[Rfam]
RNA sequence: AGGCUGGCUUUAGCUCAGCGGUUCCUUCACAUCGAACUUUCAGUUCGCUAACCACUCUUGUCCGCGAGGGUGGUUCGAGACCCGCGGGUGCUCUCCAGCCCCUUU
Numbered sequence: 001a002g003g004c005u006g007g008c009u010u011u012a013g014c015u016c017a018g019c020g021g022u023u024c025c026u027u028c029a030c031a032u033c034g035a036a037c038u039u040u041c042a043g044u045u046c047g048c049u050a051a052c053c054a055c056u057c058u059u060g061u062c063c064g065c066g067a068g069g070g071u072g073g074u075u076c077g078a079g080a081c082c083c084g085c086g087g088g089u090g091c092u093c094u095c096c097a098g099c100c101c102c103u104u105u
Base pairs, nucleotide, nucleotide: 002100003099004098005097006096007095013089014088015087016086018085019084020083021082026079027078028077
This 105-nucleotide sequence from Molossus molossus belongs to the Rfam family "Vault RNA". Rfam describes the family as follows. This family of RNAs are found as part of the enigmatic vault ribonucleoprotein complex. It is annotated as a non-coding RNA gene. For this family Rfam cites "Evolution of Vault RNAs" (Stadler et al., Mol Biol Evol, 2009). NCBI's taxonomy places the organism under Eukaryota, Theria, Eutheria, Yangochiroptera, Molossus.